[Rfam]
Rfam assigns this 64-nucleotide RNA sequence from Cytobacillus depressus to the family "Bacillaceae-1 RNA".
The family's consensus secondary structure is taken from published work.
RNA sequence: AAACCACGAGGUCGACAAAAGCGCGACAUCCUGUCGCAUUGUCGACACUAGUACGUCCUGUACG
Dot-bracket structure: ..........((((((......(((((.....)))))...))))))....((((.....)))).